Annotation: A member of the RNA family "Flavo-1 RNA", 72 nucleotides long.
[Rfam]
RNA sequence: UUUUAGCCCUGAUGGAAGUGAAAAUCCUACCGAAUUUUCAUCGGUAGAUUGUAACGGACAGCAGGAAUAAAC
Numbered sequence: 001u002u003u004u005a006g007c008c009c010u011g012a013u014g015g016a017a018g019u020g021a022a023a024a025u026c027c028u029a030c031c032g033a034a035u036u037u038u039c040a041u042c043g044g045u046a047g048a049u050u051g052u053a054a055c056g057g058a059c060a061g062c063a064g065g066a067a068u069a070a071a072c
Stems, first nucleotide, its partner, number of pairs: 009064003013060002018055002023050004029045005